The family of this 152-nucleotide RNA sequence from Chlorobium ferrooxidans is "FMN riboswitch aptamer (RFN element)".
Rfam links the family to the GO term FMN binding.
Taxonomically the source falls in Chlorobium ferrooxidans (Bacteria, Pseudomonadati, Chlorobiia, Chlorobiaceae).
Rfam's curators put it in the seed alignment.
[Rfam]
RNA sequence: ACCUGUUCUCAGGGCGGGGUGAAAAUCCCCACCGGCGGUAUACCGGCUGUUAAUCCGGAAAGCCCGCGAGCGCUUUCGAUUAUUUCGAAAGGUCAGCAGAUUUGGUGAAACUCCAAAGCCGACGGUUAUAGUCCGGAUGAAAGAGGAUAGCG
Numbered sequence: 001a002c003c004u005g006u007u008c009u010c011a012g013g014g015c016g017g018g019g020u021g022a023a024a025a026u027c028c029c030c031a032c033c034g035g036c037g038g039u040a041u042a043c044c045g046g047c048u049g050u051u052a053a054u055c056c057g058g059a060a061a062g063c064c065c066g067c068g069a070g071c072g073c074u075u076u077c078g079a080u081u082a083u084u085u086c087g088a089a090a091g092g093u094c095a096g097c098a099g100a101u102u103u104g105g106u107g108a109a110a111c112u113c114c115a116a117a118g119c120c121g122a123c124g125g126u127u128a129u130a131g132u133c134c135g136g137a138u139g140a141a142a143g144a145g146g147a148u149a150g151c152g
Base pairs, nucleotide, nucleotide: 003150004149005148006147007146008145009144010143017029018028019027031132032131033121034120035067036066037065038064062119063118070097071096101117102116103115104114105113123135124134125133